Rfam assigns this 74-nucleotide RNA sequence from Tychonema bourrellyi to the family "tRNA". Rfam describes the family as follows. Transfer RNA (tRNA) molecules are approximately 80 nucleotides in length. The organism belongs to Tychonema bourrellyi, within Bacteria. Gene Ontology term of the family: triplet codon-amino acid adaptor activity.
RNA sequence: GGGUGCGUAACUCAGGUGGAUAGAGUAGCUGCCUUCUAAGCAGCGAGCCGUAGGUUCGAGUCCUACCGUACCCG
Numbered sequence: 001g002g003g004u005g006c007g008u009a010a011c012u013c014a015g016g017u018g019g020a021u022a023g024a025g026u027a028g029c030u031g032c033c034u035u036c037u038a039a040g041c042a043g044c045g046a047g048c049c050g051u052a053g054g055u056u057c058g059a060g061u062c063c064u065a066c067c068g069u070a071c072c073c074g
Base pairs, nucleotide, nucleotide: 001073002072003071004070005069006068007067010026011025012024013023028044029043030042031041032040050066051065052064053063054062
Pairs were carried over by alignment from the consensus structure, which is taken from published work.